Rfam assigns this 114-nucleotide RNA sequence from Sphaeramia orbicularis to the family "Potassium channel RNA editing signal".

RNA sequence: GUGGGGUAUGGAGACAUGUGCCCCUCUACUAUGGGGGGGAAAUUCGUCGGAUCGUUGUGCGCCAUCGCUGGAGUACUGACCAUAGCUCUACCUGUCCCUGUCAUCGUGUCAAAU
Numbered sequence: 001g002u003g004g005g006g007u008a009u010g011g012a013g014a015c016a017u018g019u020g021c022c023c024c025u026c027u028a029c030u031a032u033g034g035g036g037g038g039g040a041a042a043u044u045c046g047u048c049g050g051a052u053c054g055u056u057g058u059g060c061g062c063c064a065u066c067g068c069u070g071g072a073g074u075a076c077u078g079a080c081c082a083u084a085g086c087u088c089u090a091c092c093u094g095u096c097c098c099u100g101u102c103a104u105c106g107u108g109u110c111a112a113a114u
Stems, first nucleotide, its partner, number of pairs: 001114002005110001007108005013102004018097001020095002037077002040074001049063002
A search with the family's covariance model found it, with a score of 100 bits. On this family, see Bhalla et al., Nat Struct Mol Biol 2004: "Control of human potassium channel inactivation by editing of a small mRNA hairpin". Rfam 15.1 lists 14,095 matches to the family in 1,000 species. The source organism's lineage runs through Eukaryota, Eurypterygia, Percomorphaceae, Gobiaria and Sphaeramia.